[Rfam]
RNA sequence: CUCUUAUCCAGAGCAGGCGGAGGGAGCAGGCCCUAUGAAGCUCGGCAACCAUCACAUUCGUGACAGGUGCUAACCUGAUGCAAGGGAAUACCCUUGAACGAUAAGAG
Numbered sequence: 001c002u003c004u005u006a007u008c009c010a011g012a013g014c015a016g017g018c019g020g021a022g023g024g025a026g027c028a029g030g031c032c033c034u035a036u037g038a039a040g041c042u043c044g045g046c047a048a049c050c051a052u053c054a055c056a057u058u059c060g061u062g063a064c065a066g067g068u069g070c071u072a073a074c075c076u077g078a079u080g081c082a083a084g085g086g087a088a089u090a091c092c093c094u095u096g097a098a099c100g101a102u103a104a105g106a107g
Stems, first nucleotide, its partner, number of pairs: 001107008013043001016042003022033003027080002030076001044071004049067002052062001081096006